RNA: raiA RNA
RNA sequence: CCCGUCCGGGUCCGUGGUUGCGCCGAACGCGGCGUCCCCUCCGACGAGGGGGCACCGGGUCGGCAAGCCGAUGCCAGCCGCAGGCGAAACGGCCCACGUAAGGCGACUUUUCGUCGACCGAUCACGGUGCGGCUUAGAGGUAAGUCCUGCCCCUUCGGAGGUCCAGAUGUCCUCCGGACGAGGGAGAAGAGCAGUAGUGGCGCACGAGUGCCGCGAGACUCUCAGCAGGCGGAUGUGGGGACGAAGACCAGGUCGGACGGACGGG
Numbered sequence: 001c002c003c004g005u006c007c008g009g010g011u012c013c014g015u016g017g018u019u020g021c022g023c024c025g026a027a028c029g030c031g032g033c034g035u036c037c038c039c040u041c042c043g044a045c046g047a048g049g050g051g052g053c054a055c056c057g058g059g060u061c062g063g064c065a066a067g068c069c070g071a072u073g074c075c076a077g078c079c080g081c082a083g084g085c086g087a088a089a090c091g092g093c094c095c096a097c098g099u100a101a102g103g104c105g106a107c108u109u110u111u112c113g114u115c116g117a118c119c120g121a122u123c124a125c126g127g128u129g130c131g132g133c134u135u136a137g138a139g140g141u142a143a144g145u146c147c148u149g150c151c152c153c154u155u156c157g158g159a160g161g162u163c164c165a166g167a168u169g170u171c172c173u174c175c176g177g178a179c180g181a182g183g184g185a186g187a188a189g190a191g192c193a194g195u196a197g198u199g200g201c202g203c204a205c206g207a208g209u210g211c212c213g214c215g216a217g218a219c220u221c222u223c224a225g226c227a228g229g230c231g232g233a234u235g236u237g238g239g240g241a242c243g244a245a246g247a248c249c250a251g252g253u254c255g256g257a258c259g260g261a262c263g264g265g
Base pairs, nucleotide, nucleotide: 001265002264003263004262005261006260007259008258012256013255014254015250016249017248018247019246071236072235073234074084076134077133078132079131080130081129082128093127094126098122102118104116105115106114107113125243146229147228148227149226150225151184152183153182154181155180188222189221190220191219197214198213201210202209203208